[Rfam]
RNA sequence: AGCAAAAUGAUGAGAUAUCUGAUCUGAAUGAAGUUAUGUAGUCAACACUUCAUUACCUUCAAAGUUCUCUGAUUGUU
Numbered sequence: 001a002g003c004a005a006a007a008u009g010a011u012g013a014g015a016u017a018u019c020u021g022a023u024c025u026g027a028a029u030g031a032a033g034u035u036a037u038g039u040a041g042u043c044a045a046c047a048c049u050u051c052a053u054u055a056c057c058u059u060c061a062a063a064g065u066u067c068u069c070u071g072a073u074u075g076u077u
Base pairs, nucleotide, nucleotide: 001077002076003075004074005073
Shown here is a 77-nucleotide RNA from Vanilla planifolia, a member of the family "Small nucleolar RNA R160".
Rfam 15.1 lists 799 matches to the family in 221 species.
A search with the family's covariance model found it, with a score of 60 bits.
Rfam's curators write: snoR160 is a C/D box small nucleolar RNA, which acts as a methylation guide for 25S ribosomal RNA in plants. snoR160 has been alternatively named snoZ270 in rice.
The organism belongs to Vanilla, within Eukaryota.